RNA sequence: UGAUGAAAUAAAGGCAGAAACGAAAUAUUGUCCGUUUCGGCUUUAAUAUAAGGAAACAAA
Numbered sequence: 001u002g003a004u005g006a007a008a009u010a011a012a013g014g015c016a017g018a019a020a021c022g023a024a025a026u027a028u029u030g031u032c033c034g035u036u037u038c039g040g041c042u043u044u045a046a047u048a049u050a051a052g053g054a055a056a057c058a059a060a
Base pairs, nucleotide, nucleotide: 008047009046013042014041015040017038018037019036020035021034022033
RNA: Lacto-rpoB RNA
Organism: Enterococcus ratti